[Rfam]
RNA sequence: ACGUGUGAUAGGGCUUUCGUGGGUGGUAGUUCACUCCCUUUUAAAUGAAAGGGGGUGAUAAGAAUGACAGUAUUUGAAUCUUUAACUUUGAUGAUUUCCUUUGCAACAUUGGUUAUUGUCAUACUGUCACAACAAAAAAAGUAACCACCCAUUUCGCCUAGCACGCAUCUGGGUUGGUUACUUUUUCUAACCUAAAAUGUGAGCUACCCCCUUGAAGGGCUUUCACACGAAGGACCGUUCCAUGUUCUAGCAUGGGCG
Numbered sequence: 001a002c003g004u005g006u007g008a009u010a011g012g013g014c015u016u017u018c019g020u021g022g023g024u025g026g027u028a029g030u031u032c033a034c035u036c037c038c039u040u041u042u043a044a045a046u047g048a049a050a051g052g053g054g055g056u057g058a059u060a061a062g063a064a065u066g067a068c069a070g071u072a073u074u075u076g077a078a079u080c081u082u083u084a085a086c087u088u089u090g091a092u093g094a095u096u097u098c099c100u101u102u103g104c105a106a107c108a109u110u111g112g113u114u115a116u117u118g119u120c121a122u123a124c125u126g127u128c129a130c131a132a133c134a135a136a137a138a139a140a141g142u143a144a145c146c147a148c149c150c151a152u153u154u155c156g157c158c159u160a161g162c163a164c165g166c167a168u169c170u171g172g173g174u175u176g177g178u179u180a181c182u183u184u185u186u187c188u189a190a191c192c193u194a195a196a197a198u199g200u201g202a203g204c205u206a207c208c209c210c211c212u213u214g215a216a217g218g219g220c221u222u223u224c225a226c227a228c229g230a231a232g233g234a235c236c237g238u239u240c241c242a243u244g245u246u247c248u249a250g251c252a253u254g255g256g257c258g
Stems, first nucleotide, its partner, number of pairs: 002229004007224002012205005018156002020151004025145001027143002031058003035054007066128007079094002103120001106117001208219003236258003240255006